Annotation:
The family of this 387-nucleotide part of an RNA from Fusarium kuroshium is "Eukaryotic large subunit ribosomal RNA". The organism belongs to Fusarium solani species complex, within Eukaryota. Rfam links the family to the GO terms structural constituent of ribosome and ribosome. It scores 2815 bits against the family's covariance model. Pairs were carried over by alignment from the consensus structure, which is taken from published work. Its Rfam clan is "LSU clan".

RNA sequence: GACCUCGCCGCAAUGGUAAUUCAGCUUAGUACGAGAGGAACCGCUGAUUUAGAUAAUUGGUUUUUGUGGCUGUCCGACCGGGCAGUGCCGCGAAGCUACUAUCUGCUGGAUAAUAGCUGAACGCCUCUAAGUCAGAAUCCAUGCUAGAACGCGGUGAUAUCGCCUGCACGUAUAGAUAGAUAAGAAUAGGCUUCGGCUUAGCGUCUUAGUAGGCGAUUCUUCCGCGGCGCACGAAGCGCGUCGUAGUAUUUCACGUAUUGUAAUUUUAAUACGAGCGGGGUUAAAUCCUUUGCAGAUGACUUAGCUGUGCGAAACGGUCCUAUAAGUAGUAGAGUAGCCUUGUUGUUACGAUCUGCUGAGGGUAAGCCGUCCUUCGCCUUGAUUUCC
Numbered sequence: 001g002a003c004c005u006c007g008c009c010g011c012a013a014u015g016g017u018a019a020u021u022c023a024g025c026u027u028a029g030u031a032c033g034a035g036a037g038g039a040a041c042c043g044c045u046g047a048u049u050u051a052g053a054u055a056a057u058u059g060g061u062u063u064u065u066g067u068g069g070c071u072g073u074c075c076g077a078c079c080g081g082g083c084a085g086u087g088c089c090g091c092g093a094a095g096c097u098a099c100u101a102u103c104u105g106c107u108g109g110a111u112a113a114u115a116g117c118u119g120a121a122c123g124c125c126u127c128u129a130a131g132u133c134a135g136a137a138u139c140c141a142u143g144c145u146a147g148a149a150c151g152c153g154g155u156g157a158u159a160u161c162g163c164c165u166g167c168a169c170g171u172a173u174a175g176a177u178a179g180a181u182a183a184g185a186a187u188a189g190g191c192u193u194c195g196g197c198u199u200a201g202c203g204u205c206u207u208a209g210u211a212g213g214c215g216a217u218u219c220u221u222c223c224g225c226g227g228c229g230c231a232c233g234a235a236g237c238g239c240g241u242c243g244u245a246g247u248a249u250u251u252c253a254c255g256u257a258u259u260g261u262a263a264u265u266u267u268a269a270u271a272c273g274a275g276c277g278g279g280g281u282u283a284a285a286u287c288c289u290u291u292g293c294a295g296a297u298g299a300c301u302u303a304g305c306u307g308u309g310c311g312a313a314a315c316g317g318u319c320c321u322a323u324a325a326g327u328a329g330u331a332g333a334g335u336a337g338c339c340u341u342g343u344u345g346u347u348a349c350g351a352u353c354u355g356c357u358g359a360g361g362g363u364a365a366g367c368c369g370u371c372c373u374u375c376g377c378c379u380u381g382a383u384u385u386c387c
Stems, first nucleotide, its partner, number of pairs: 005157007014146004019049001021047005050105005058098003065092005070085006107141003114134001116132003163279005169273001283385005288304002292300001309377005315369003319362002326356004331352001334349005